RNA sequence: CUACCAAAAGCUAAUCUGGGGGGGGGCUUUUUCAUAACCUUUAUCAACUUGGGCUAUUUGGCAAAGUGAUCAAGACCACACUCCCCACUGGGUUAUACUUAGUAUGGUUCGUUAAUAUCUUGUGGCCUAUACU
Dot-bracket structure: ...(((((...((.(((((.((.(((.(.......).))..).))..)).))).)))))))...........((.(((((......(.((((((((((...)))))))))).).......))))).)).....
Background
This 133-nucleotide RNA sequence from Nannospalax galili belongs to the Rfam family "Small nucleolar RNA SNORA4". The family's consensus secondary structure was predicted with PFOLD. Its family is annotated with nucleolus and RNA processing in the Gene Ontology. Rfam's curators write: ACA4 is a member of the H/ACA class of snoRNA that guide the sites of modification of uridines to pseudouridines.